RNA sequence: GGCUUUUUUCGCGGCGGAGCUCGACCGCCCAUCCUACUGAUCUGUCAGUUCAUCGACGAGUACCGCGACGAGUUCGGAGUCGAGCCGAUCUGCCAGACCCUGCGCCAAGCAGACAUCCAGAUCGCUCCG
Numbered sequence: 001g002g003c004u005u006u007u008u009u010c011g012c013g014g015c016g017g018a019g020c021u022c023g024a025c026c027g028c029c030c031a032u033c034c035u036a037c038u039g040a041u042c043u044g045u046c047a048g049u050u051c052a053u054c055g056a057c058g059a060g061u062a063c064c065g066c067g068a069c070g071a072g073u074u075c076g077g078a079g080u081c082g083a084g085c086c087g088a089u090c091u092g093c094c095a096g097a098c099c100c101u102g103c104g105c106c107a108a109g110c111a112g113a114c115a116u117c118c119a120g121a122u123c124g125c126u127c128c129g
Stems, first nucleotide, its partner, number of pairs: 013029005075129005086124002089121004
The record is a 129-nucleotide sequence from Acidipropionibacterium virtanenii, which matches "ALIL pseudoknot" in Rfam. A search with the family's covariance model found it, with a score of 77 bits. The family's RNA type in Rfam is cis-regulatory element.